[Rfam]
RNA: Proteobacterial sRNA psRNA2
Organism: Nitrosomonas sp. Nm166
RNA sequence: CUCCUUUGCGCUUACGUGUUUUAGUUGAUAAAGUUUUUACACCUCUAUCAAAUCGGAUAACCCCACCUUUUGGCAAGAAGACUGUCAGAUCAAAUCUGAGCUACUACCCGACAGGUACCUCAUUAGUGAUUACUUAUUUUCAAAAGUAUUAUCCGCUUUUAAAACUUUUAGUGCAGCACUAGCACAAAUUUCGUCA
Numbered sequence: 001c002u003c004c005u006u007u008g009c010g011c012u013u014a015c016g017u018g019u020u021u022u023a024g025u026u027g028a029u030a031a032a033g034u035u036u037u038u039a040c041a042c043c044u045c046u047a048u049c050a051a052a053u054c055g056g057a058u059a060a061c062c063c064c065a066c067c068u069u070u071u072g073g074c075a076a077g078a079a080g081a082c083u084g085u086c087a088g089a090u091c092a093a094a095u096c097u098g099a100g101c102u103a104c105u106a107c108c109c110g111a112c113a114g115g116u117a118c119c120u121c122a123u124u125a126g127u128g129a130u131u132a133c134u135u136a137u138u139u140u141c142a143a144a145a146g147u148a149u150u151a152u153c154c155g156c157u158u159u160u161a162a163a164a165c166u167u168u169u170a171g172u173g174c175a176g177c178a179c180u181a182g183c184a185c186a187a188a189u190u191u192c193g194u195c196a
Stems, first nucleotide, its partner, number of pairs: 003056002008019004023053001025051006032044002065194002071142003077135002080133001084101002086098005103130001105128002108126001167188003171185004175180001